[Rfam]
RNA sequence: GCGGCUCCUGAUUGUCCAAACGCAAUUCUCGCGUCUCCGGCUCGGCCGAGAGUUGAGUCUGGACGUCCCGAGCCGC
Numbered sequence: 001g002c003g004g005c006u007c008c009u010g011a012u013u014g015u016c017c018a019a020a021c022g023c024a025a026u027u028c029u030c031g032c033g034u035c036u037c038c039g040g041c042u043c044g045g046c047c048g049a050g051a052g053u054u055g056a057g058u059c060u061g062g063a064c065g066u067c068c069c070g071a072g073c074c075g076c
Base pairs, nucleotide, nucleotide: 002075003074004073005072006071007070010067011066012065014064015063016062017061018060021057023055024054025053026052027051028050029049030048031047

mir-219 microRNA precursor family: a 76-nucleotide RNA sequence from Pipistrellus kuhlii. A search with the family's covariance model found it, with a score of 68 bits. Rfam links the family to the GO terms RISC complex and miRNA-mediated post-transcriptional gene silencing. NCBI's taxonomy places the organism under Eukaryota, Opisthokonta, Euteleostomi, Dipnotetrapodomorpha, Pipistrellus.